[Rfam]
RNA sequence: GAAUGAAGUGAUGAUCAAUUGAUUCCCUAUUGGUUUGAUUGGCUAGCAUGAUGGCAAAAUUUUUGUAUUAGUCUUUCUGAUCAUUC
Numbered sequence: 001g002a003a004u005g006a007a008g009u010g011a012u013g014a015u016c017a018a019u020u021g022a023u024u025c026c027c028u029a030u031u032g033g034u035u036u037g038a039u040u041g042g043c044u045a046g047c048a049u050g051a052u053g054g055c056a057a058a059a060u061u062u063u064u065g066u067a068u069u070a071g072u073c074u075u076u077c078u079g080a081u082c083a084u085u086c
Stems, first nucleotide, its partner, number of pairs: 002085004042055003

A member of the RNA family "Small nucleolar RNA Z102/R77" from Centaurea solstitialis, 86 nucleotides long. Lineage of the source: Eukaryota > campanulids > Asteraceae > Cardueae > Centaurea. Rfam classes the family as a C/D-box small nucleolar RNA. For this family Rfam cites "Identification of 66 box C/D snoRNAs in Arabidopsis thaliana: extensive gene duplications generated multiple isoforms predicting new ribosomal RNA 2'-O-methylation sites" (Barneche et al., J Mol Biol, 2001).